[Rfam]
RNA sequence: ACUGACGUAUUAUCUAACAAUUAAUACACGAAGCCGCCAUUGGCACGGUAUGAUACAGUCGGAGUACAGGAUGACCAGCCCGUAAGCAUAUCGAUAAGUCCCGAGA
Numbered sequence: 001a002c003u004g005a006c007g008u009a010u011u012a013u014c015u016a017a018c019a020a021u022u023a024a025u026a027c028a029c030g031a032a033g034c035c036g037c038c039a040u041u042g043g044c045a046c047g048g049u050a051u052g053a054u055a056c057a058g059u060c061g062g063a064g065u066a067c068a069g070g071a072u073g074a075c076c077a078g079c080c081c082g083u084a085a086g087c088a089u090a091u092c093g094a095u096a097a098g099u100c101c102c103g104a105g106a
Base pairs, nucleotide, nucleotide: 002078007027008026009025010024011023012022040103042101043100044098046093047092048091049090050089051088052087060082061081062080065077069076070075
Dot-bracket structure: .[....((((((.........))))))............(.(((.(((((((.......(((..(...((....)))].)))....)))))))....).)).)...